Shown here is an 86-nucleotide sequence from Flavobacteria bacterium BAL38, a member of the family "tRNA". Lineage of the source: Bacteria > Pseudomonadati > Bacteroidota > Flavobacteriia > Flavobacteriales. It scores 57 bits against the family's covariance model. About the family: Transfer RNA (tRNA) molecules are approximately 80 nucleotides in length. Their secondary structure includes four short double-helical elements and three loops (D, anti-codon, and T loops). Further hydrogen bonds mediate the characteristic L-shaped molecular structure. tRNAs have two regions of fundamental functional importance: the anti-codon, which is responsible for specific mRNA codon recognition, and the 3' end, to which the tRNAs corresponding amino acid is attached (by aminoacyl-tRNA synthetases). tRNAs cope with the degeneracy of the genetic code in two manners: having more than one tRNA (with a specific anti-codon) for a particular amino acid; and 'wobble' base-pairing, i.e. permitting non-standard base-pairing at the 3rd anti-codon position.
[Rfam]
RNA sequence: GCUUGAGUGGUGGAAUUGGUAGACACGCUGGACUUAAAAUCCAGUGGGUAGUAAUGCCCGUGCGGGUUCAAGUCCCGCCUUGAGUA
Numbered sequence: 001g002c003u004u005g006a007g008u009g010g011u012g013g014a015a016u017u018g019g020u021a022g023a024c025a026c027g028c029u030g031g032a033c034u035u036a037a038a039a040u041c042c043a044g045u046g047g048g049u050a051g052u053a054a055u056g057c058c059c060g061u062g063c064g065g066g067u068u069c070a071a072g073u074c075c076c077g078c079c080u081u082g083a084g085u086a
Stems, first nucleotide, its partner, number of pairs: 001085007010026003028044005062078005

The family's RNA type in Rfam is transfer RNA.